[Rfam]
RNA sequence: GGAUAUUUGAGAGGAGCUGUCCCUAGUACGAGAGGACCGGGAUGGACGCACCUCUGGUGCACCAGUUGUCAGGCCUACUGGCACAGCUGGGCAGCUAUGUGCGGAACGGAUAAACGCUGAAGGCAUCUAAGCGUGAAGCCGACCUCAAGAUAAGAUAUCCCACUGAGUUAAUCAGGUAAGACCCCUUGAAGACUACGAGGUAGAUAGGCUCAAAGUGUAAGCGUGGCGACACGUUCAGCUAGCGAGUACUAAUCGGUCGAGG
Numbered sequence: 001g002g003a004u005a006u007u008u009g010a011g012a013g014g015a016g017c018u019g020u021c022c023c024u025a026g027u028a029c030g031a032g033a034g035g036a037c038c039g040g041g042a043u044g045g046a047c048g049c050a051c052c053u054c055u056g057g058u059g060c061a062c063c064a065g066u067u068g069u070c071a072g073g074c075c076u077a078c079u080g081g082c083a084c085a086g087c088u089g090g091g092c093a094g095c096u097a098u099g100u101g102c103g104g105a106a107c108g109g110a111u112a113a114a115c116g117c118u119g120a121a122g123g124c125a126u127c128u129a130a131g132c133g134u135g136a137a138g139c140c141g142a143c144c145u146c147a148a149g150a151u152a153a154g155a156u157a158u159c160c161c162a163c164u165g166a167g168u169u170a171a172u173c174a175g176g177u178a179a180g181a182c183c184c185c186u187u188g189a190a191g192a193c194u195a196c197g198a199g200g201u202a203g204a205u206a207g208g209c210u211c212a213a214a215g216u217g218u219a220a221g222c223g224u225g226g227c228g229a230c231a232c233g234u235u236c237a238g239c240u241a242g243c244g245a246g247u248a249c250u251a252a253u254c255g256g257u258c259g260a261g262g
Base pairs, nucleotide, nucleotide: 001160002159003158004157005156006155007154008153011146012145013144014143017045018044019043020042021041022040023039047103048102049101050100051099055097056096057095062090063089064088065087066086067083068082069081070080071079072078107141108140109139114134115133116132117131118130163175164174165173177260180258181257182256183255184200185199186198187197188196205251206250207249208247209246210245211244214240215239221234222233223232224231225230
Rfam assigns this 262-nucleotide part of an RNA from Massiliimalia timonensis to the family "Bacterial large subunit ribosomal RNA". Its family is annotated with ribosome and structural constituent of ribosome in the Gene Ontology. The family's consensus secondary structure is taken from published work.